[Rfam]
RNA sequence: UUACAGCACUUUUGUACGUCGCUCUGGAUAAGGGCGUCUGCUAAAUGCUGUAAA
Numbered sequence: 001u002u003a004c005a006g007c008a009c010u011u012u013u014g015u016a017c018g019u020c021g022c023u024c025u026g027g028a029u030a031a032g033g034g035c036g037u038c039u040g041c042u043a044a045a046u047g048c049u050g051u052a053a054a
Stems, first nucleotide, its partner, number of pairs: 013043001014041003020036006

Record summary: This 54-nucleotide RNA from Silurus meridionalis belongs to the Rfam family "UnaL2 LINE 3' element". It is annotated as a cis-regulatory element. The match comes from Rfam's covariance-model search (55 bits). Rfam 15.1 lists 493,311 matches to the family in 99 species. Rfam describes the family as follows. The eel long interspersed element (LINE) UnaL2 and its partner short interspersed element (SINE) share a conserved 3' tail containing a stem-loop that is critical for their retrotransposition. Presumably, the first step of retrotransposition is the recognition of their 3' tails by UnaL2-encoded reverse transcriptase. The solution structure of a 17-nucleotide RNA derived from the 3' tail of UnaL2 was determined by NMR. The family's consensus secondary structure is taken from published work.